[Rfam]
RNA sequence: AUAAUGAUACUUCUGUCCAGCCAUAGACAUCGCAAUGGGGACAGCCUGCGGAGAUCCCGGAGGAGGUGAGAAUCCUAUGA
Numbered sequence: 001a002u003a004a005u006g007a008u009a010c011u012u013c014u015g016u017c018c019a020g021c022c023a024u025a026g027a028c029a030u031c032g033c034a035a036u037g038g039g040g041a042c043a044g045c046c047u048g049c050g051g052a053g054a055u056c057c058c059g060g061a062g063g064a065g066g067u068g069a070g071a072a073u074c075c076u077a078u079g080a
Base pairs, nucleotide, nucleotide: 012077013044014043015042016041017040018039045063046062047061049059050058051057064076065075066074
pemK RNA: an 80-nucleotide sequence from Lacrimispora saccharolytica. Rfam's curators put it in the seed alignment.